[Rfam]
RNA sequence: CGCAUCCCCACUGGAGAGAGACACACCCAACCUGAUGUGGUUUGUGUGUCCACCGAAGGAGCAACCCGCAGUCGACCCGCCAUCUGGUGGGUCUUGGCCCGGCGAAUCUCUCAGGUAAAGCGGACAGCGGGGGCAGC
Numbered sequence: 001c002g003c004a005u006c007c008c009c010a011c012u013g014g015a016g017a018g019a020g021a022c023a024c025a026c027c028c029a030a031c032c033u034g035a036u037g038u039g040g041u042u043u044g045u046g047u048g049u050c051c052a053c054c055g056a057a058g059g060a061g062c063a064a065c066c067c068g069c070a071g072u073c074g075a076c077c078c079g080c081c082a083u084c085u086g087g088u089g090g091g092u093c094u095u096g097g098c099c100c101g102g103c104g105a106a107u108c109u110c111u112c113a114g115g116u117a118a119a120g121c122g123g124a125c126a127g128c129g130g131g132g133g134c135a136g137c
Stems, first nucleotide, its partner, number of pairs: 006132004011127003020050007052116003055112002059110003066102003
This 137-nucleotide RNA sequence from Rhodoferax fermentans belongs to the Rfam family "Glycine riboswitch aptamer". The organism belongs to Rhodoferax, within Bacteria. The match comes from Rfam's covariance-model search (53 bits).